Shown here is a 70-nucleotide RNA from Megalops atlanticus, a member of the family "mir-24 microRNA precursor family". Pairs were carried over by alignment from the consensus structure, which was predicted with RNAalifold. A search with the family's covariance model found it, with a score of 76 bits. NCBI's taxonomy places the organism under Eukaryota, Teleostomi, Neopterygii, Elopocephala, Megalops. This family represents the microRNA (miRNA) mir-24 family. miRNAs are transcribed as ~70nt precursors (modelled here) and subsequently processed by the Dicer enzyme to give a ~22nt product. In this case the mature sequence comes from the 3' arm of the precursor. The extents of the hairpin precursors are not generally known and are estimated based on hairpin prediction. The products are thought to have regulatory roles through complementarity to mRNA. The involvement of Dicer in miRNA processing suggests a relationship with the phenomenon of RNA interference. miRNAs are numbered based on the sequence of the mature RNA. miR-24 has been identified in human and mouse.
[Rfam]
RNA sequence: ACCUCCGGUGCCUGCUGAACUGGUAUCAGUGUGUUGUCAGAAUGCUGGCUCAGUUCAGCAGGAACAGGAG
Numbered sequence: 001a002c003c004u005c006c007g008g009u010g011c012c013u014g015c016u017g018a019a020c021u022g023g024u025a026u027c028a029g030u031g032u033g034u035u036g037u038c039a040g041a042a043u044g045c046u047g048g049c050u051c052a053g054u055u056c057a058g059c060a061g062g063a064a065c066a067g068g069a070g
Base pairs, nucleotide, nucleotide: 003070004069005068006067008065009064011062012061013060015058016057017056018055019054020053021052022051023050026048027047028046029045030044